[Rfam]
RNA: glmS glucosamine-6-phosphate activated ribozyme aptamer
Organism: Romboutsia lituseburensis
RNA sequence: AUUCACUUAUAAGCGCCAGAACUUAGUAAUUAUGUAAGAUAAUUAAAGAAAAAGUACUGAGUUGACGAGGUCAGAGUUUAUCGAAUUAUCGGCGGAUGCUCUGCGGUGUAUUUACCAUCGUUAGAACUUGCUUAAAACAUAGAAGUAAUUCUGUGGACAAAGGGAAGUUUAUGUAAAUAU
Numbered sequence: 001a002u003u004c005a006c007u008u009a010u011a012a013g014c015g016c017c018a019g020a021a022c023u024u025a026g027u028a029a030u031u032a033u034g035u036a037a038g039a040u041a042a043u044u045a046a047a048g049a050a051a052a053a054g055u056a057c058u059g060a061g062u063u064g065a066c067g068a069g070g071u072c073a074g075a076g077u078u079u080a081u082c083g084a085a086u087u088a089u090c091g092g093c094g095g096a097u098g099c100u101c102u103g104c105g106g107u108g109u110a111u112u113u114a115c116c117a118u119c120g121u122u123a124g125a126a127c128u129u130g131c132u133u134a135a136a137a138c139a140u141a142g143a144a145g146u147a148a149u150u151c152u153g154u155g156g157a158c159a160a161a162g163g164g165a166a167g168u169u170u171a172u173g174u175a176a177a178u179a180u
Base pairs, nucleotide, nucleotide: 020063021062022061023060024059025058026057027056072103073102074101075100076099081092082091083090084089104120105119106118107117108116124170125169126168127167128166129165138155139154140153141152142151143150144149